[Rfam]
This 114-nucleotide RNA sequence from Eremothecium cymbalariae belongs to the Rfam family "Small nucleolar RNA snR48". Clan: SNORD60 clan. The literature on the family includes a 1999 paper in Science by Lowe and Eddy, "A computational screen for methylation guide snoRNAs in yeast". NCBI's taxonomy places the organism under Eukaryota, Opisthokonta, Ascomycota, Saccharomycetales, Eremothecium cymbalariae. Its family is annotated with nucleolus and RNA processing in the Gene Ontology.

RNA sequence: UCAAGAUGAUGAAUACGUUUAUCAUAUAUGUUUUUUUCUGGCAUCUCUAAUGUUAGAAUGUGAAGUUUAAGUACUGUCCAUUCCAUGAAUGCAACCCCAUGACUAUAUCUGACU
Number, nucleotide and partner (000 for none) at each position: 001u000002c000003a000004a000005g000006a000007u000008g000009a000010u000011g000012a000013a000014u000015a000016c000017g000018u000019u000020u000021a000022u000023c000024a000025u000026a000027u000028a000029u000030g000031u000032u000033u000034u000035u000036u000037u000038c000039u000040g000041g000042c000043a000044u000045c000046u000047c000048u000049a000050a000051u000052g000053u000054u000055a000056g000057a082058a081059u080060g079061u000062g000063a000064a000065g000066u000067u000068u000069a000070a000071g000072u000073a000074c000075u000076g000077u000078c000079c060080a059081u058082u057083c000084c000085a000086u000087g000088a000089a000090u000091g000092c000093a000094a000095c000096c000097c000098c000099a000100u000101g000102a000103c000104u000105a000106u000107a000108u000109c000110u000111g000112a000113c000114u000